[Rfam]
RNA sequence: AACUUAUCAAGAGAAGUGGAGGGAACGGCCCUAAGAAACUUCAGCAACCUACUUUAAUGUGUGGUGCUAAUUCCGUGAAUUAAUUGAUUUAAUAAAAUUAAAUCAAUAAUUCAAAGAUGAGAG
Numbered sequence: 001a002a003c004u005u006a007u008c009a010a011g012a013g014a015a016g017u018g019g020a021g022g023g024a025a026c027g028g029c030c031c032u033a034a035g036a037a038a039c040u041u042c043a044g045c046a047a048c049c050u051a052c053u054u055u056a057a058u059g060u061g062u063g064g065u066g067c068u069a070a071u072u073c074c075g076u077g078a079a080u081u082a083a084u085u086g087a088u089u090u091a092a093u094a095a096a097a098u099u100a101a102a103u104c105a106a107u108a109a110u111u112c113a114a115a116g117a118u119g120a121g122a123g
Stems, first nucleotide, its partner, number of pairs: 003121006013042005021031003025076004043068004048064002050061003072115001077112006
Overview: This 123-nucleotide RNA sequence from Hypnocyclicus thermotrophus belongs to the Rfam family "SAM riboswitch aptamer (S box leader)". It scores 77 bits against the family's covariance model.